[Rfam]
RNA sequence: CUGCAUCCACUGAUAGACCUGGAACAGUUUGUGGUUCUUCUGGUUUGCACUAGGAUGCCAAAGAAAACGCUCUCCGCGCUUCCUGUCUGUCUCUGUGGCAGUCCAGAUUGAAUUGGAGGGUACAUGU
Dot-bracket structure: ..((((((..((.((((((..((((.(....).))))....))))))))...))))))............((((((..(...(((.(((((.....)))))..)))...)...))))))........
Numbered sequence: 001c002u003g004c005a006u007c008c009a010c011u012g013a014u015a016g017a018c019c020u021g022g023a024a025c026a027g028u029u030u031g032u033g034g035u036u037c038u039u040c041u042g043g044u045u046u047g048c049a050c051u052a053g054g055a056u057g058c059c060a061a062a063g064a065a066a067a068c069g070c071u072c073u074c075c076g077c078g079c080u081u082c083c084u085g086u087c088u089g090u091c092u093c094u095g096u097g098g099c100a101g102u103c104c105a106g107a108u109u110g111a112a113u114u115g116g117a118g119g120g121u122a123c124a125u126g127u
Stems, first nucleotide, its partner, number of pairs: 003058006011049002014047006022037004027032001071119006079110001083106003087101005